[Rfam]
RNA: MIR1520 microRNA precursor family
RNA sequence: UUUUUAUUGACUGACACGUGUCAUGUUCUGAUUGAAUAUCAAUUCCAUGAAAGAUGAAAUGUAUUGUUGUUUUCAUUGAUCAAUCAGAACAUGACACUUGACAGUCAUCAUCC
Numbered sequence: 001u002u003u004u005u006a007u008u009g010a011c012u013g014a015c016a017c018g019u020g021u022c023a024u025g026u027u028c029u030g031a032u033u034g035a036a037u038a039u040c041a042a043u044u045c046c047a048u049g050a051a052a053g054a055u056g057a058a059a060u061g062u063a064u065u066g067u068u069g070u071u072u073u074c075a076u077u078g079a080u081c082a083a084u085c086a087g088a089a090c091a092u093g094a095c096a097c098u099u100g101a102c103a104g105u106c107a108u109c110a111u112c113c
Stems, first nucleotide, its partner, number of pairs: 013102001015100002018097002022093003026089004031084003